Shown here is a 118-nucleotide RNA sequence from Pantoea sp. Mhis, a member of the family "Ribosomal S15 leader". By type it is a cis-regulatory leader. The literature on the family includes a 1996 paper in Biochimie by Benard et al., "Pseudoknot and translational control in the expression of the S15 ribosomal protein". A search with the family's covariance model found it, with a score of 76 bits. About the family: The E. coli Ribosomal S15 gene 5' UTR can form two alternative structures.
RNA sequence: GUAAGUUGCUGAAUUAGAGAUCGGCAAUUAAAUUUUCAUUGUAUUAUAGGAGUAAUUUAUUAUGUCUCUAAAUAUAAAAGAUAAAGCAAAAAUAGUAGCUCAAUAUGGUCGCAAUCAU
Dot-bracket structure: ......((((((........))))))....................(.((((.............)))).)...............................................